[Rfam]
A member of the RNA family "Small nucleolar RNA SNORA65" from Tyrannus savana, 128 nucleotides long. Taxonomically the source falls in Tyrannus (Eukaryota, Craniata, Tetrapoda, Saurischia). The family has 14 seed sequences and 1,089 matches in Rfam 15.1. It scores 80 bits against the family's covariance model. Pairs were carried over by alignment from the consensus structure, which was predicted with RNAalifold.
RNA sequence: CCUGCCACCGUGCCUGUCCUGAUCUCCGUGGCUGGCACAUUCCAGUGGUGAGCUGAGAGGAAGCCCCAGGCAGGAAGCAGUUCUCCCCUGGAUGUGGGGAGGCCUGUGCCGAAAACCUGGGAACAGGU
Numbered sequence: 001c002c003u004g005c006c007a008c009c010g011u012g013c014c015u016g017u018c019c020u021g022a023u024c025u026c027c028g029u030g031g032c033u034g035g036c037a038c039a040u041u042c043c044a045g046u047g048g049u050g051a052g053c054u055g056a057g058a059g060g061a062a063g064c065c066c067c068a069g070g071c072a073g074g075a076a077g078c079a080g081u082u083c084u085c086c087c088c089u090g091g092a093u094g095u096g097g098g099g100a101g102g103c104c105u106g107u108g109c110c111g112a113a114a115a116c117c118u119g120g121g122a123a124c125a126g127g128u
Stems, first nucleotide, its partner, number of pairs: 005048004010043001018035002021032001023031002064121003068118001069116001073110002078106003082102002086098003